[Rfam]
RNA sequence: CGAGAGUGCCCUUCCGAACUGGUGUGAUUCGUGUUCUGGACAAACCCGAUCAUCCCAGCCCAGAGGGCACUCUCAUCGCAUUUCCACGGUGUGCCAG
Numbered sequence: 001c002g003a004g005a006g007u008g009c010c011c012u013u014c015c016g017a018a019c020u021g022g023u024g025u026g027a028u029u030c031g032u033g034u035u036c037u038g039g040a041c042a043a044a045c046c047c048g049a050u051c052a053u054c055c056c057a058g059c060c061c062a063g064a065g066g067g068c069a070c071u072c073u074c075a076u077c078g079c080a081u082u083u084c085c086a087c088g089g090u091g092u093g094c095c096a097g
Stems, first nucleotide, its partner, number of pairs: 002074012016061001019058004025052004031047001033045003
RNA: Actinobacteria sRNA Ms_IGR-7